[Rfam]
RNA sequence: CGUGCGGGCACAGUGCCCGUACGCCCGCUGCGGUACCUGGUACGGCCGCAGUCGG
Numbered sequence: 001c002g003u004g005c006g007g008g009c010a011c012a013g014u015g016c017c018c019g020u021a022c023g024c025c026c027g028c029u030g031c032g033g034u035a036c037c038u039g040g041u042a043c044g045g046c047c048g049c050a051g052u053c054g055g
Stems, first nucleotide, its partner, number of pairs: 001023009025055003028051007